Rfam assigns this 77-nucleotide RNA sequence from Crocodylus porosus to the family "Mammalian CPEB3 ribozyme".
Pairs were carried over by alignment from the consensus structure, which is taken from published work.
Rfam describes the family as follows. The mammalian CPEB3 ribozyme is a self cleaving RNA located in the second intron of the CPEB3 gene which belongs to a family of genes regulating messenger RNA polyadenylation.
RNA sequence: GGUUGGAAGUUUGAGGCCAUAGCAGAAACGCUCAUGGGGCAGCUCUGUCAGAUUCCAGUGAAUCUGUGAAUUCUGCU
Numbered sequence: 001g002g003u004u005g006g007a008a009g010u011u012u013g014a015g016g017c018c019a020u021a022g023c024a025g026a027a028a029c030g031c032u033c034a035u036g037g038g039g040c041a042g043c044u045c046u047g048u049c050a051g052a053u054u055c056c057a058g059u060g061a062a063u064c065u066g067u068g069a070a071u072u073c074u075g076c077u
Stems, first nucleotide, its partner, number of pairs: 013045003017042001021077007029039001049066007
Dot-bracket structure: ............[[[.[...(((((((.(.........)..]]]]...(((((((....)))))))....)))))))